[Rfam]
RNA sequence: AAUUCUACUUCAACUUGAGCACCUUUUUUAUCACACUACAGAAAGUGCUAUUAGUUGGAGUAUAUUCU
Numbered sequence: 001a002a003u004u005c006u007a008c009u010u011c012a013a014c015u016u017g018a019g020c021a022c023c024u025u026u027u028u029u030a031u032c033a034c035a036c037u038a039c040a041g042a043a044a045g046u047g048c049u050a051u052u053a054g055u056u057g058g059a060g061u062a063u064a065u066u067c068u
Base pairs, nucleotide, nucleotide: 004064006062007061008060009059010058011057013055014054015053017051018049019048020047021046022045025042026041027040

About this RNA:
The record is a 68-nucleotide RNA sequence from Salvelinus namaycush, which matches "miR-430 microRNA precursor family" in Rfam. Lineage of the source: Eukaryota > Deuterostomia > Salmoniformes > Salmonidae > Salvelinus. The base pairs follow the family's consensus structure, which was predicted with RNAalifold. The match comes from Rfam's covariance-model search (48 bits).